Annotation
The family of this 193-nucleotide RNA from Anopheles stephensi is "drz-agam-2-2 ribozyme". The base pairs follow the family's consensus structure, which is taken from published work. Rfam 15.1 lists 486 matches to the family in 10 species. Gene Ontology term of the family: catalytic activity. A reference for the family is Webb et al. (2009), "Widespread occurrence of self-cleaving ribozymes", Science. Taxonomically the source falls in Neocellia (Eukaryota, Pterygota, Diptera, Anophelinae).
RNA sequence: AUCUGAUCAAUCUGUUAAUGGGGUAGGAUCCGAGACUCCUUUCGGGGUUACACAGGCUCUCCUACCCAACUCCUUUUCCGUCACGUCCUCGUCGUACAGAGUGGUAACUUUUCCCAUCACAUAUCCAAUCUAAGGUACACGGGCCUGUCCCAACCCCUUGGGCGGAUGGUGGAGCAAGGCUAAACAGGAGGGG
Numbered sequence: 001a002u003c004u005g006a007u008c009a010a011u012c013u014g015u016u017a018a019u020g021g022g023g024u025a026g027g028a029u030c031c032g033a034g035a036c037u038c039c040u041u042u043c044g045g046g047g048u049u050a051c052a053c054a055g056g057c058u059c060u061c062c063u064a065c066c067c068a069a070c071u072c073c074u075u076u077u078c079c080g081u082c083a084c085g086u087c088c089u090c091g092u093c094g095u096a097c098a099g100a101g102u103g104g105u106a107a108c109u110u111u112u113c114c115c116a117u118c119a120c121a122u123a124u125c126c127a128a129u130c131u132a133a134g135g136u137a138c139a140c141g142g143g144c145c146u147g148u149c150c151c152a153a154c155c156c157c158u159u160g161g162g163c164g165g166a167u168g169g170u171g172g173a174g175c176a177a178g179g180c181u182a183a184a185c186a187g188g189a190g191g192g193g
Stems, first nucleotide, its partner, number of pairs: 009102001011100005021067008030056002071193004076189002079187001083095003087104002108178003112174001115171004123167004131153001134150002155162002